[Rfam]
RNA sequence: GUGGAGGGAAGCUUGGUGCUGAGGCAACCCACUGAGUGUCUUCAUCACUCUUCCAUUGAAGCCUUGGGGAAGGUCUGAGACAGGAGCCAUCAGUUGUCCUCACAGGACCUCACUUGAUUCAAGUGAAUGAGUUCCCAGUAAUCAUGGAUCCAGUUGAGGACCCUUUGCAGGAGACACAGGCUGGUGAGAUCACAAACUCUGUCUCACAGCUGUGGAUGCAGCUCUCUCUGGAUUUGGAAAUGACUCAUGGCUGGCAUCCUUGAGCUCAAUGACAGAGGUGAGAUACAGCUCAAUCUCAUAACCCAAUUCAGACUACUCUCCUUCCAC
Numbered sequence: 001g002u003g004g005a006g007g008g009a010a011g012c013u014u015g016g017u018g019c020u021g022a023g024g025c026a027a028c029c030c031a032c033u034g035a036g037u038g039u040c041u042u043c044a045u046c047a048c049u050c051u052u053c054c055a056u057u058g059a060a061g062c063c064u065u066g067g068g069g070a071a072g073g074u075c076u077g078a079g080a081c082a083g084g085a086g087c088c089a090u091c092a093g094u095u096g097u098c099c100u101c102a103c104a105g106g107a108c109c110u111c112a113c114u115u116g117a118u119u120c121a122a123g124u125g126a127a128u129g130a131g132u133u134c135c136c137a138g139u140a141a142u143c144a145u146g147g148a149u150c151c152a153g154u155u156g157a158g159g160a161c162c163c164u165u166u167g168c169a170g171g172a173g174a175c176a177c178a179g180g181c182u183g184g185u186g187a188g189a190u191c192a193c194a195a196a197c198u199c200u201g202u203c204u205c206a207c208a209g210c211u212g213u214g215g216a217u218g219c220a221g222c223u224c225u226c227u228c229u230g231g232a233u234u235u236g237g238a239a240a241u242g243a244c245u246c247a248u249g250g251c252u253g254g255c256a257u258c259c260u261u262g263a264g265c266u267c268a269a270u271g272a273c274a275g276a277g278g279u280g281a282g283a284u285a286c287a288g289c290u291c292a293a294u295c296u297c298a299u300a301a302c303c304c305a306a307u308u309c310a311g312a313c314u315a316c317u318c319u320c321c322u323u324c325c326a327c
Stems, first nucleotide, its partner, number of pairs: 001327004007321003012277003016273002020066005034050005075311005085252004096108004110126006127248007148233006278299007
Shown here is a 327-nucleotide sequence from Geotrypetes seraphini, a member of the family "Nuclear RNase P". Its family is annotated with ribonuclease P complex, ribonuclease P activity and tRNA processing in the Gene Ontology.